[Rfam]
RNA: Eukaryotic large subunit ribosomal RNA, nucleotides 720 to 1013
RNA sequence: GAGUCUAACAUGACAGCGAGUAGAAAGAGAAGUAUCUCUCAUUCUACGUAGUGUAAGCGAAAUUUGAAGAGUGAUUUUUUUUGUCAUUGAAGAAAAGCAACUCGGUUCCUUUUUUCUAAAGAAAGCUGGAAAUGUAGUUGUCAUGUUGGGACCCGAAAGAUGGUGAACUAUGCCCGAGUAGGAUGAAGCCAGAGGAAACUCUGGUGAAAGUCCGUUUACGAUGCUGACGUGCAAAUCGCUCGUUUGACUUGGGUAUAGGGGCGAAAGACCAAUCGAACCAUCUAGUAGCUGGUU
Numbered sequence: 001g002a003g004u005c006u007a008a009c010a011u012g013a014c015a016g017c018g019a020g021u022a023g024a025a026a027g028a029g030a031a032g033u034a035u036c037u038c039u040c041a042u043u044c045u046a047c048g049u050a051g052u053g054u055a056a057g058c059g060a061a062a063u064u065u066g067a068a069g070a071g072u073g074a075u076u077u078u079u080u081u082u083g084u085c086a087u088u089g090a091a092g093a094a095a096a097g098c099a100a101c102u103c104g105g106u107u108c109c110u111u112u113u114u115u116c117u118a119a120a121g122a123a124a125g126c127u128g129g130a131a132a133u134g135u136a137g138u139u140g141u142c143a144u145g146u147u148g149g150g151a152c153c154c155g156a157a158a159g160a161u162g163g164u165g166a167a168c169u170a171u172g173c174c175c176g177a178g179u180a181g182g183a184u185g186a187a188g189c190c191a192g193a194g195g196a197a198a199c200u201c202u203g204g205u206g207a208a209a210g211u212c213c214g215u216u217u218a219c220g221a222u223g224c225u226g227a228c229g230u231g232c233a234a235a236u237c238g239c240u241c242g243u244u245u246g247a248c249u250u251g252g253g254u255a256u257a258g259g260g261g262c263g264a265a266a267g268a269c270c271a272a273u274c275g276a277a278c279c280a281u282c283u284a285g286u287a288g289c290u291g292g293u294u
Stems, first nucleotide, its partner, number of pairs: 005149013020047003026039005051058002069103004075096007106132002108129002111125003115122002152292002155289001159282006168258011179246001181213004188205007218243004223239002226237002260270002